[Rfam]
Ruegeria cis2 sRNA: a 153-nucleotide RNA sequence from Ruegeria marina. NCBI's taxonomy places the organism under Bacteria, Pseudomonadati, Pseudomonadota, Rhodobacterales, Ruegeria.
RNA sequence: GUCGCUGUUGUGCGGAAAGUAGUUCUUGAACACAAAUCCGCGGCACUGGUCGAUCGCAUGAAACAGCGGGUUCCAGUCGAACAUCGCCAGCAUAUAACCCGGCAGGGUGUUGGCCACGAACAUCUUGCCCGAGGCGAUCAUGUUGGCCCGCUG
Numbered sequence: 001g002u003c004g005c006u007g008u009u010g011u012g013c014g015g016a017a018a019g020u021a022g023u024u025c026u027u028g029a030a031c032a033c034a035a036a037u038c039c040g041c042g043g044c045a046c047u048g049g050u051c052g053a054u055c056g057c058a059u060g061a062a063a064c065a066g067c068g069g070g071u072u073c074c075a076g077u078c079g080a081a082c083a084u085c086g087c088c089a090g091c092a093u094a095u096a097a098c099c100c101g102g103c104a105g106g107g108u109g110u111u112g113g114c115c116a117c118g119a120a121c122a123u124c125u126u127g128c129c130c131g132a133g134g135c136g137a138u139c140a141u142g143u144u145g146g147c148c149c150g151c152u153g
Base pairs, nucleotide, nucleotide: 002035004033006032007031008030009029012026014024015023038056040054041052042051043050044049064153065152066151067150068149070082071081072080073079086147087146088145089144090143091142092141093140098134099133100131101130102129103127104126105125106124107123108122110119111118112117
The family's consensus secondary structure was predicted with RNAfold.